[Rfam]
The family of this 64-nucleotide sequence from Haloferax mediterranei is "S15-Halobacteria ribosomal protein leader". Pairs were carried over by alignment from the consensus structure, which is taken from published work. On this family, see Eckert and Weinberg, BMC Microbiol 2020: "Discovery of 20 novel ribosomal leader candidates in bacteria and archaea". The sequence is in the family's curated seed alignment.

RNA sequence: GGGAAUCUAGCACGGCCGCAAAUCUGACGUGCCCGCGUUUGCGGGCUUGGGAUUGCGGUAGUGC
Numbered sequence: 001g002g003g004a005a006u007c008u009a010g011c012a013c014g015g016c017c018g019c020a021a022a023u024c025u026g027a028c029g030u031g032c033c034c035g036c037g038u039u040u041g042c043g044g045g046c047u048u049g050g051g052a053u054u055g056c057g058g059u060a061g062u063g064c
Stems, first nucleotide, its partner, number of pairs: 010064004015059007024051002031046006